RNA sequence: UGGCACGGUACGAUUCCGUGGGGUGGGUUUAAUGGGAUGUGAACCCUGUGCGCACAACCUGCCUAACGCUUAGACCCUGUAUUGGUGAAGGUAAGUGAGGAGGCAUCCAAAAUCUGAAAGCCAUUACGGGGCGUGCGGGACUACGAAAGUGUUCAAG
Numbered sequence: 001u002g003g004c005a006c007g008g009u010a011c012g013a014u015u016c017c018g019u020g021g022g023g024u025g026g027g028u029u030u031a032a033u034g035g036g037a038u039g040u041g042a043a044c045c046c047u048g049u050g051c052g053c054a055c056a057a058c059c060u061g062c063c064u065a066a067c068g069c070u071u072a073g074a075c076c077c078u079g080u081a082u083u084g085g086u087g088a089a090g091g092u093a094a095g096u097g098a099g100g101a102g103g104c105a106u107c108c109a110a111a112a113u114c115u116g117a118a119a120g121c122c123a124u125u126a127c128g129g130g131g132c133g134u135g136c137g138g139g140a141c142u143a144c145g146a147a148a149g150u151g152u153u154c155a156a157g
Stems, first nucleotide, its partner, number of pairs: 004020005021064009075131007084122003089115003099108003138154004143150002

A member of the RNA family "RAGATH-36 RNA", 157 nucleotides long.
Rfam classes the family as a small RNA.